[Rfam]
Rfam assigns this 156-nucleotide RNA from Bacillus sp. OK048 to the family "c-di-AMP riboswitch aptamer (ydaO/yuaA leader)". The match comes from Rfam's covariance-model search (61 bits).
Nucleotides: 156
Stems, first nucleotide, its partner, number of pairs: 011141003018029003030136006073120002080090002083087001093115004
Number, partner (000 for none) and nucleotide at each position: 001000a002000u003000u004000u005000a006000u007000u008000u009000u010000g011141c012140g013139c014000u015000u016000a017000a018029u019028c020027u021000u022000u023000u024000u025000u026000u027020a028019g029018a030136g031135c032134g033133g034132g035131g036000g037000a038000c039000c040000c041000a042000a043000a044000u045000u046000u047000u048000c049000u050000a051000u052000g053000c054000g055000g056000a057000u058000a059000u060000u061000u062000u063000c064000g065000c066000c067000g068000c069000u070000a071000u072000u073120g074119g075000u076000g077000a078000a079000u080090u081089c082000u083087u084000a085000a086000a087083a088000u089081g090080a091000a092000g093115g094114g095113g096112c097000u098000u099000a100000u101000c102000g103000u104000u105000u106000c107000c108000c109000a110000u111000a112096g113095u114094c115093c116000u117000a118000a119074c120073c121000u122000g123000a124000a125000a126000g127000c128000u129000a130000a131035c132034c133033u134032c135031g136030u137000a138000u139013g140012c141011g142000a143000u144000u145000g146000a147000g148000a149000g150000g151000a152000a153000a154000c155000a156000a